[Rfam]
RNA sequence: UCUAUGCUUCCGCCAGCGGUCCCCUCUUUGGGGCCCCAGCUUCAGUGAAGACAAGGGGUUUCGGCCUUUUGAACGCACUGAUGCCCUGACGCUGCUUCAUUACGGAGCUGUGUCCGGGGCCCCGGUGGAUUUCGAUCCGCCGGAGGGGUGGCCCUCCACCUCGACUCCAGUCCCUCGAGGAACGACUCGAUGA
Numbered sequence: 001u002c003u004a005u006g007c008u009u010c011c012g013c014c015a016g017c018g019g020u021c022c023c024c025u026c027u028u029u030g031g032g033g034c035c036c037c038a039g040c041u042u043c044a045g046u047g048a049a050g051a052c053a054a055g056g057g058g059u060u061u062c063g064g065c066c067u068u069u070u071g072a073a074c075g076c077a078c079u080g081a082u083g084c085c086c087u088g089a090c091g092c093u094g095c096u097u098c099a100u101u102a103c104g105g106a107g108c109u110g111u112g113u114c115c116g117g118g119g120c121c122c123c124g125g126u127g128g129a130u131u132u133c134g135a136u137c138c139g140c141c142g143g144a145g146g147g148g149u150g151g152c153c154c155u156c157c158a159c160c161u162c163g164a165c166u167c168c169a170g171u172c173c174c175u176c177g178a179g180g181a182a183c184g185a186c187u188c189g190a191u192g193a
Stems, first nucleotide, its partner, number of pairs: 018153003021148007030123007039084002042081006052071008086116001088114005094108005124141007159180006